[Rfam]
RNA: Nitrogen stress-induced RNA 1
RNA sequence: UAGUAGAUGCACCCUGAUAGUUAUUUGUCCCUUGGUCAAUAUAGACAAAGGGGCUUUUUUUU
Number, nucleotide and partner (000 for none) at each position: 001u000002a000003g012004u011005a000006g000007a000008u000009g000010c000011a004012c003013c000014c000015u000016g000017a000018u000019a000020g000021u000022u000023a000024u000025u000026u000027g054028u053029c052030c051031c050032u049033u048034g000035g046036u045037c044038a000039a000040u000041a000042u000043a000044g037045a036046c035047a000048a033049a032050g031051g030052g029053g028054c027055u000056u000057u000058u000059u000060u000061u000062u000